The family of this 186-nucleotide RNA from Alkalibacillus haloalkaliphilus is "6S / SsrS RNA". By type it is a non-coding RNA gene. About the family: E. coli 6S RNA was the first non coding RNA to be sequenced, but its function was unknown until recently. The organism belongs to Alkalibacillus, within Bacteria. The family's consensus secondary structure is taken from published work.
RNA sequence: UCAAUCCUAAUGUGUUCGUCUUACUCCACAUAAGUUUUGACCGAACACUUAUAUUGUAGGGAGUCCGGACGUUUCCAUAUUGCGUAAAAGCCUUUGUUAAGGACUUACAAGAUAUAUGGAACAGGACACCCACCUGCCUUGAGCGGGUUCAAAACAAUACGGAGGGACGGCACAAUUGGGAUUGUU
Dot-bracket structure: .((((((((((((((.(((..............(((.(((((................(((.((((.(.....(((((((.....((...(((......)))..)).......))))))).).)))).)))..............)).))).)))...........))))))).))))))))))..